[Rfam]
RNA sequence: UUGGCAGAUGACGAGAAGCAAAGACAAUUGCAUCUGCAGUGCUCCUGAUUCAUAGGUGCUCAAUGGCAUGAUGACUCUGUCUAGGGGAAUCUCUGAUGCUAA
Numbered sequence: 001u002u003g004g005c006a007g008a009u010g011a012c013g014a015g016a017a018g019c020a021a022a023g024a025c026a027a028u029u030g031c032a033u034c035u036g037c038a039g040u041g042c043u044c045c046u047g048a049u050u051c052a053u054a055g056g057u058g059c060u061c062a063a064u065g066g067c068a069u070g071a072u073g074a075c076u077c078u079g080u081c082u083a084g085g086g087g088a089a090u091c092u093c094u095g096a097u098g099c100u101a102a
Stems, first nucleotide, its partner, number of pairs: 002101005
This 102-nucleotide RNA from Panicum hallii belongs to the Rfam family "Small nucleolar RNA R44/J54/Z268 family".
The family has 29 seed sequences and 1,168 matches in Rfam 15.1.
The match comes from Rfam's covariance-model search (53 bits).
The base pairs follow the family's consensus structure, which was predicted with PFOLD.
Rfam classes the family as a C/D-box small nucleolar RNA.
The organism belongs to Panicum hallii, within Eukaryota.